[Rfam]
RNA sequence: GGUAAAAGCAUCAUUGAGUGCAGCGUUGAUGAUAUCCAUUGCAGCAAUUUGUCGUUCCCGGCAGCUUGGAAUGCGGUUUCAUCUGCGCUGCACUCAAUCAUGUUUUUA
Numbered sequence: 001g002g003u004a005a006a007a008g009c010a011u012c013a014u015u016g017a018g019u020g021c022a023g024c025g026u027u028g029a030u031g032a033u034a035u036c037c038a039u040u041g042c043a044g045c046a047a048u049u050u051g052u053c054g055u056u057c058c059c060g061g062c063a064g065c066u067u068g069g070a071a072u073g074c075g076g077u078u079u080c081a082u083c084u085g086c087g088c089u090g091c092a093c094u095c096a097a098u099c100a101u102g103u104u105u106u107u108a
Base pairs, nucleotide, nucleotide: 006105007104008103009102010101011100013098014097015096016095017094018093019092020091021090022089023088024087025086026085028083030081031080032079

The family of this 108-nucleotide sequence from Rhododendron williamsianum is "MIR397 microRNA precursor family". NCBI's taxonomy places the organism under Eukaryota, Magnoliopsida, Gunneridae, Pentapetalae, Rhododendron. Rfam links the family to the GO terms RISC complex and miRNA-mediated post-transcriptional gene silencing. Pairs were carried over by alignment from the consensus structure, which was predicted with WAR. A search with the family's covariance model found it, with a score of 75 bits. The family has 7 seed sequences and 496 matches in Rfam 15.1. A reference for the family is Wu et al. (2009), "Rice MicroRNA effector complexes and targets", Plant Cell.